[Rfam]
RNA sequence: GCUAGCUCGGGCCUGGAGAAGCCGGGGCCGGAGCAGAGGGAGGAGGAAGAGAAGGAAAAGGAGAGGGGGUCGCAGUGGGCGCUCGGCUCUCGGGAGCCGGGCUCAUGGACGGGUGAGGCGGCCGUGUGCGCAGACAGUGCUCCAGCCGCGCGCGCGCCCCAGGCCCUGGCCCGGGCCUCGGUUCCAGAAGGAAGAGCAGCCCGCCAAGGCGCGGAGGAGAGCGGGCUGCCUCGCAGUCCGAGCCGGAGAGGGGGCACGAGCCGCGCCGGCCCCGGCCGGGCCUCCGAAACCAUGAACUUUCUGCUC
Numbered sequence: 001g002c003u004a005g006c007u008c009g010g011g012c013c014u015g016g017a018g019a020a021g022c023c024g025g026g027g028c029c030g031g032a033g034c035a036g037a038g039g040g041a042g043g044a045g046g047a048a049g050a051g052a053a054g055g056a057a058a059a060g061g062a063g064a065g066g067g068g069g070u071c072g073c074a075g076u077g078g079g080c081g082c083u084c085g086g087c088u089c090u091c092g093g094g095a096g097c098c099g100g101g102c103u104c105a106u107g108g109a110c111g112g113g114u115g116a117g118g119c120g121g122c123c124g125u126g127u128g129c130g131c132a133g134a135c136a137g138u139g140c141u142c143c144a145g146c147c148g149c150g151c152g153c154g155c156g157c158c159c160c161a162g163g164c165c166c167u168g169g170c171c172c173g174g175g176c177c178u179c180g181g182u183u184c185c186a187g188a189a190g191g192a193a194g195a196g197c198a199g200c201c202c203g204c205c206a207a208g209g210c211g212c213g214g215a216g217g218a219g220a221g222c223g224g225g226c227u228g229c230c231u232c233g234c235a236g237u238c239c240g241a242g243c244c245g246g247a248g249a250g251g252g253g254g255c256a257c258g259a260g261c262c263g264c265g266c267c268g269g270c271c272c273c274g275g276c277c278g279g280g281c282c283u284c285c286g287a288a289a290c291c292a293u294g295a296a297c298u299u300u301c302u303g304c305u306c
Stems, first nucleotide, its partner, number of pairs: 002036002006033003010029003013024001015022001048305002051299002054291002059283003066273006072266002075264004080260001086257001089254003098240006106233003111160003115157001117155001118153003121149002124146001125144002128140004162230003168227006176217004181212001183209002187204001190200001
This 306-nucleotide sequence belongs to the Rfam family "Vascular endothelial growth factor (VEGF) IRES A". Pairs were carried over by alignment from the consensus structure, which is taken from published work. This family represents the vascular endothelial growth factor (VEGF) internal ribosome entry site (IRES) A. VEGF is an endothelial cell mitogen with many crucial functions such as embryogenic development and wound healing. The 5' UTR of VEGF mRNA contains two IRES elements which are able to promote efficient translation at the AUG start codon, this family represents IRES A. Its family is annotated with ribosome binding in the Gene Ontology. The family's RNA type in Rfam is internal ribosome entry site.